[Rfam]
This 91-nucleotide RNA from Drosophila virilis belongs to the Rfam family "mir-958 microRNA precursor family".
RNA sequence: CGGUGUGGAUUGGCAAGUAGAAUAGCAGGCUUAUCACAUGUACAAUUCAACCUAGUGUGAGAUUCUUCUAUUCUACUUUCGACAAACACCA
Numbered sequence: 001c002g003g004u005g006u007g008g009a010u011u012g013g014c015a016a017g018u019a020g021a022a023u024a025g026c027a028g029g030c031u032u033a034u035c036a037c038a039u040g041u042a043c044a045a046u047u048c049a050a051c052c053u054a055g056u057g058u059g060a061g062a063u064u065c066u067u068c069u070a071u072u073c074u075a076c077u078u079u080c081g082a083c084a085a086a087c088a089c090c091a
Stems, first nucleotide, its partner, number of pairs: 002090005011081003015078011027067003034060005041054001
Notes
The family's consensus secondary structure was predicted with RNAalifold.